This 120-nucleotide RNA from Paspalum vaginatum belongs to the Rfam family "U5 spliceosomal RNA". It is annotated as a spliceosomal small nuclear RNA. About the family: U5 RNA is a component of both types of known spliceosome. The precise function of this molecule is unknown, though it is known that the 5' loop is required for splice site selection and p220 binding, and that both the 3' stem-loop and the Sm site are important for Sm protein binding and cap methylation.
[Rfam]
RNA sequence: AGCUGCGCAGUGAGCACAAAGCGAACUAUUCUUUCGCCUUUUACUAAAGAAUACCGUGUGCUCGCUGCAAUAAGCAGCGUACGCUUAUUUUUGGAGGGGUUUUUCUCUUUUGAGAAGAAU
Numbered sequence: 001a002g003c004u005g006c007g008c009a010g011u012g013a014g015c016a017c018a019a020a021g022c023g024a025a026c027u028a029u030u031c032u033u034u035c036g037c038c039u040u041u042u043a044c045u046a047a048a049g050a051a052u053a054c055c056g057u058g059u060g061c062u063c064g065c066u067g068c069a070a071u072a073a074g075c076a077g078c079g080u081a082c083g084c085u086u087a088u089u090u091u092u093g094g095a096g097g098g099g100u101u102u103u104u105c106u107c108u109u110u111u112g113a114g115a116a117g118a119a120u
Stems, first nucleotide, its partner, number of pairs: 003077004008067011027053008095120001100119006
Source information: The source organism's lineage runs through Eukaryota, Euphyllophyta, commelinids, Andropogonodae and Paspalum.